[Rfam]
RNA: ZMP/ZTP riboswitch aptamer (pfl RNA motif)
RNA sequence: GAUGUCCCGCGUGACUGGCGAGGUUCAAGGUGGUCCGACCACCGGGGAGCGCGGGCAUCGUUUCCGCCGCUCGCCUGGGCACCCUUC
Numbered sequence: 001g002a003u004g005u006c007c008c009g010c011g012u013g014a015c016u017g018g019c020g021a022g023g024u025u026c027a028a029g030g031u032g033g034u035c036c037g038a039c040c041a042c043c044g045g046g047g048a049g050c051g052c053g054g055g056c057a058u059c060g061u062u063u064c065c066g067c068c069g070c071u072c073g074c075c076u077g078g079g080c081a082c083c084c085u086u087c
Stems, first nucleotide, its partner, number of pairs: 006055007015046002017075005030042004066080003